Shown here is a 91-nucleotide sequence from Leptobrachium leishanense, a member of the family "mir-726 microRNA precursor family". The source organism's lineage runs through Eukaryota, Eumetazoa, Chordata, Batrachia and Leptobrachium. The family's consensus secondary structure was predicted with RNAalifold. Rfam 15.1 lists 131 matches to the family in 112 species.

RNA sequence: CAGGGUACUUGUCUGGAAUUCCGCUAGUUAUGAACUAUUCCAUGUCACUAUACAAAAGUUCACUACUAGCAGAACUCGGCCAAGUACCUCU
Numbered sequence: 001c002a003g004g005g006u007a008c009u010u011g012u013c014u015g016g017a018a019u020u021c022c023g024c025u026a027g028u029u030a031u032g033a034a035c036u037a038u039u040c041c042a043u044g045u046c047a048c049u050a051u052a053c054a055a056a057a058g059u060u061c062a063c064u065a066c067u068a069g070c071a072g073a074a075c076u077c078g079g080c081c082a083a084g085u086a087c088c089u090c091u
Stems, first nucleotide, its partner, number of pairs: 003089009013079004019074003023070006031062006038056002